[Rfam]
RNA sequence: AAGUCUAACCUAAAGUGCACCUAAGUGAAGCCUAACCUAAACUUGAAGGGUAGCCAAGGUCAUAAUGUGGAGCCGGAUAAACCCUUUAACCAAAGUCUCCAAAGUGUUUCAUAAAAUAUAAGUAGUAUGAGUAGCAAUGGACCACCAAGGAACUAUCGUGGAGCUUUGGAAAUGAACUUAAAGACAUGUGCUAAAGGGAAAAAAUGGAGGUUCUACAUAAUGCAGCCCCAAUCGGGCGGUAAAUUCCGUCCAAGGCUAAAUACGGGCAAGAGAUCGAUAGCAAACAAGUACCGCGAGGGAAAGAUGAAAAGGACUUCGAAAAGAGAGUCAAAGAGCGCUUGAAAUUGUCGGGAGGGAAGUGGAUGGGGGCCGACGAUGUGCCUAUGUCGGAUGUGGAGUGGCGACGAGUCGGUUCGUCAAUCAACUCGGGGCGUGGAUCAACACGAUUCGGGGCGGCGGCCCAAGCUCGGGUUGUAGUCAUGCCUAUGGAGACGUCGUGGCCUCAAUCGUGGAACGCAGUGCGAGCCGUCGUGGCGUGCCUUCAGGCACCUGCGCGCUCAGGGUGUCGGUUUAUGGGGCCCCCAUUUGGC
Numbered sequence: 001a002a003g004u005c006u007a008a009c010c011u012a013a014a015g016u017g018c019a020c021c022u023a024a025g026u027g028a029a030g031c032c033u034a035a036c037c038u039a040a041a042c043u044u045g046a047a048g049g050g051u052a053g054c055c056a057a058g059g060u061c062a063u064a065a066u067g068u069g070g071a072g073c074c075g076g077a078u079a080a081a082c083c084c085u086u087u088a089a090c091c092a093a094a095g096u097c098u099c100c101a102a103a104g105u106g107u108u109u110c111a112u113a114a115a116a117u118a119u120a121a122g123u124a125g126u127a128u129g130a131g132u133a134g135c136a137a138u139g140g141a142c143c144a145c146c147a148a149g150g151a152a153c154u155a156u157c158g159u160g161g162a163g164c165u166u167u168g169g170a171a172a173u174g175a176a177c178u179u180a181a182a183g184a185c186a187u188g189u190g191c192u193a194a195a196g197g198g199a200a201a202a203a204a205u206g207g208a209g210g211u212u213c214u215a216c217a218u219a220a221u222g223c224a225g226c227c228c229c230a231a232u233c234g235g236g237c238g239g240u241a242a243a244u245u246c247c248g249u250c251c252a253a254g255g256c257u258a259a260a261u262a263c264g265g266g267c268a269a270g271a272g273a274u275c276g277a278u279a280g281c282a283a284a285c286a287a288g289u290a291c292c293g294c295g296a297g298g299g300a301a302a303g304a305u306g307a308a309a310a311g312g313a314c315u316u317c318g319a320a321a322a323g324a325g326a327g328u329c330a331a332a333g334a335g336c337g338c339u340u341g342a343a344a345u346u347g348u349c350g351g352g353a354g355g356g357a358a359g360u361g362g363a364u365g366g367g368g369g370c371c372g373a374c375g376a377u378g379u380g381c382c383u384a385u386g387u388c389g390g391a392u393g394u395g396g397a398g399u400g401g402c403g404a405c406g407a408g409u410c411g412g413u414u415c416g417u418c419a420a421u422c423a424a425c426u427c428g429g430g431g432c433g434u435g436g437a438u439c440a441a442c443a444c445g446a447u448u449c450g451g452g453g454c455g456g457c458g459g460c461c462c463a464a465g466c467u468c469g470g471g472u473u474g475u476a477g478u479c480a481u482g483c484c485u486a487u488g489g490a491g492a493c494g495u496c497g498u499g500g501c502c503u504c505a506a507u508c509g510u511g512g513a514a515c516g517c518a519g520u521g522c523g524a525g526c527c528g529u530c531g532u533g534g535c536g537u538g539c540c541u542u543c544a545g546g547c548a549c550c551u552g553c554g555c556g557c558u559c560a561g562g563g564u565g566u567c568g569g570u571u572u573a574u575g576g577g578g579c580c581c582c583c584a585u586u587u588g589g590c
Stems, first nucleotide, its partner, number of pairs: 009197001011194001013192001015191004022180005207228001209226001211224001213222001234251005291298002314325003360588012376434001379433005385428002438569002441566004
Annotation: Rfam assigns this 590-nucleotide part of an RNA from Vitis vinifera to the family "Eukaryotic large subunit ribosomal RNA". Pairs were carried over by alignment from the consensus structure, which is taken from published work. NCBI's taxonomy places the organism under Eukaryota, Viridiplantae, Spermatophyta, Gunneridae, Vitis. The match comes from Rfam's covariance-model search (2529 bits).